[Rfam]
A member of the RNA family "small nucleolar RNA snoR117" from Eucalyptus grandis, 84 nucleotides long. The source organism's lineage runs through Eukaryota, Tracheophyta, Magnoliopsida, Gunneridae and Eucalyptus. Rfam 15.1 lists 419 matches to the family in 211 species. Pairs were carried over by alignment from the consensus structure, which was predicted with RNAalifold.
RNA sequence: GGCCUGUGAUGCGUAAGAUUGUCCGUACCAUCUGAGACGACCGUCUCUGAUCGACACUCCGUCUUCUCUAGCUUUCUGAGGCCU
Numbered sequence: 001g002g003c004c005u006g007u008g009a010u011g012c013g014u015a016a017g018a019u020u021g022u023c024c025g026u027a028c029c030a031u032c033u034g035a036g037a038c039g040a041c042c043g044u045c046u047c048u049g050a051u052c053g054a055c056a057c058u059c060c061g062u063c064u065u066c067u068c069u070a071g072c073u074u075u076c077u078g079a080g081g082c083c084u
Base pairs, nucleotide, nucleotide: 001083002082003081004080